The family of this 115-nucleotide sequence from Nitratireductor sp. StC3 is "Alphaproteobacterial ar15". The pairing is the family consensus, mapped onto this sequence. Lineage of the source: Bacteria > Pseudomonadati > Pseudomonadota > Alphaproteobacteria > Nitratireductor. The match comes from Rfam's covariance-model search (44 bits). On this family, see del Val et al., Mol Microbiol 2007: "Identification of differentially expressed small non-coding RNAs in the legume endosymbiont Sinorhizobium meliloti by comparative genomics". Its Rfam clan is "suhB sRNA clan".
RNA sequence: ACUCCUGGGCGCGUUCCUCCUCCCAUUAGCGCCCGCGAGUGUUCCCCUCUGGAGGUUUCGCCGUUUUACGGCACUUCCAUUAGCUAGGCCGGUCCCUUCAGGUACCGGCCUUUUU
Numbered sequence: 001a002c003u004c005c006u007g008g009g010c011g012c013g014u015u016c017c018u019c020c021u022c023c024c025a026u027u028a029g030c031g032c033c034c035g036c037g038a039g040u041g042u043u044c045c046c047c048u049c050u051g052g053a054g055g056u057u058u059c060g061c062c063g064u065u066u067u068a069c070g071g072c073a074c075u076u077c078c079a080u081u082a083g084c085u086a087g088g089c090c091g092g093u094c095c096c097u098u099c100a101g102g103u104a105c106c107g108g109c110c111u112u113u114u115u
Stems, first nucleotide, its partner, number of pairs: 002039003006035003011032004050079007087110007095102002